Shown here is a 204-nucleotide sequence from Acipenser ruthenus, a member of the family "Small nucleolar RNA SNORA74". About the family: U19 belongs to the H/ACA class of snoRNAs. snoRNAs bind a number of proteins (including dyskerin, Gar1p and Nop10p in the case of the H/ACA class) to form snoRNP complexes. This class are thought to guide the sites of modification of uridines to pseudouridines by forming direct base pairing interactions with substrate RNAs. Targets may include ribosomal and spliceosomal RNAs but the exact functions of many snoRNAs, including U19, are not confirmed. Co-precipitation of U19 snoRNA with RNase MRP RNA suggests that U19 may be involved in pre-rRNA processing. The match comes from Rfam's covariance-model search (116 bits).
RNA sequence: CCCAGCGGUAGUCAGCUGUCCAGGCGUCUCCCUGUGCCUGUGCCGGUGUUACACUGCUGGGAGAGGAAGGCGCGGCCCGGUAGCUUGGCUGUGGGAGACACUGUUUUAGUGGCUGCUGAAGCCGGGCUGAGGCCGUGCUCUGCACCCUCUGAGAGUGGACUGAACCAGCUCCCCUGGAGCAGCCCUAGUCUGGGUGCACACAGA
Numbered sequence: 001c002c003c004a005g006c007g008g009u010a011g012u013c014a015g016c017u018g019u020c021c022a023g024g025c026g027u028c029u030c031c032c033u034g035u036g037c038c039u040g041u042g043c044c045g046g047u048g049u050u051a052c053a054c055u056g057c058u059g060g061g062a063g064a065g066g067a068a069g070g071c072g073c074g075g076c077c078c079g080g081u082a083g084c085u086u087g088g089c090u091g092u093g094g095g096a097g098a099c100a101c102u103g104u105u106u107u108a109g110u111g112g113c114u115g116c117u118g119a120a121g122c123c124g125g126g127c128u129g130a131g132g133c134c135g136u137g138c139u140c141u142g143c144a145c146c147c148u149c150u151g152a153g154a155g156u157g158g159a160c161u162g163a164a165c166c167a168g169c170u171c172c173c174c175u176g177g178a179g180c181a182g183c184c185c186u187a188g189u190c191u192g193g194g195u196g197c198a199c200a201c202a203g204a
Stems, first nucleotide, its partner, number of pairs: 001061009011052002015047004020042001021040005070138008082128005089121002092118003096114002099111004141198007157185002161181002165177003

Rfam 15.1 lists 1,348 matches to the family in 628 species. Clan: SNORA74 clan.